Record summary
The family of this 77-nucleotide sequence from Crocodylus porosus is "Mammalian CPEB3 ribozyme". The mammalian CPEB3 ribozyme is a self cleaving RNA located in the second intron of the CPEB3 gene which belongs to a family of genes regulating messenger RNA polyadenylation. The source organism's lineage runs through Eukaryota, Eumetazoa, Craniata, Sauropsida and Crocodylus.
RNA sequence: AGUUGCCAGUUCGAGGCCAAAGCAGAAGCGCUCAUGGUGCAGACCUAUCAGAUUCUAGUGAAUCUGUGAAUUCUGCU
Number, nucleotide and partner (000 for none) at each position: 001a000002g000003u000004u000005g000006c000007c000008a000009g000010u000011u000012c000013g045014a000015g044016g000017c042018c000019a000020a000021a077022g076023c075024a074025g073026a072027a071028g040029c039030g038031c000032u000033c000034a000035u000036g000037g000038u030039g029040c028041a000042g017043a000044c015045c013046u000047a000048u000049c066050a065051g064052a063053u062054u061055c060056u000057a000058g000059u000060g055061a054062a053063u052064c051065u050066g049067u000068g000069a000070a000071u027072u026073c025074u024075g023076c022077u021